[Rfam]
RNA sequence: CCUCGGGGACGACCUCGAGGCCUCCUGAUACGCAGGGACGACCCUG
Numbered sequence: 001c002c003u004c005g006g007g008g009a010c011g012a013c014c015u016c017g018a019g020g021c022c023u024c025c026u027g028a029u030a031c032g033c034a035g036g037g038a039c040g041a042c043c044c045u046g
Base pairs, nucleotide, nucleotide: 001020002019003018004017005016006015007014008013033046034045035044036043037042